[Rfam]
RNA: Group II catalytic intron D1-D4-3
Organism: Marinoscillum furvescens
RNA sequence: UCCUGAGUAAUUGGGAAUCCAAAGGAAGCUUAAGGCAAAAUGUGGAUUUGACGAACAGGAACCAGAUACAAGGCCUAAGUCUGGGGGUAAGCCUGCCUUGGAAGGUGACGCCCAAUAUCCAUCCGUAACCGGACAAGGUAAAUCUGGCAAGUCCACAGGAAAGAAGGAAAGU
Numbered sequence: 001u002c003c004u005g006a007g008u009a010a011u012u013g014g015g016a017a018u019c020c021a022a023a024g025g026a027a028g029c030u031u032a033a034g035g036c037a038a039a040a041u042g043u044g045g046a047u048u049u050g051a052c053g054a055a056c057a058g059g060a061a062c063c064a065g066a067u068a069c070a071a072g073g074c075c076u077a078a079g080u081c082u083g084g085g086g087g088u089a090a091g092c093c094u095g096c097c098u099u100g101g102a103a104g105g106u107g108a109c110g111c112c113c114a115a116u117a118u119c120c121a122u123c124c125g126u127a128a129c130c131g132g133a134c135a136a137g138g139u140a141a142a143u144c145u146g147g148c149a150a151g152u153c154c155a156c157a158g159g160a161a162a163g164a165a166g167g168a169a170a171g172u
Stems, first nucleotide, its partner, number of pairs: 001016006028172004036163001041157010062147006073139003079134006085113004091106004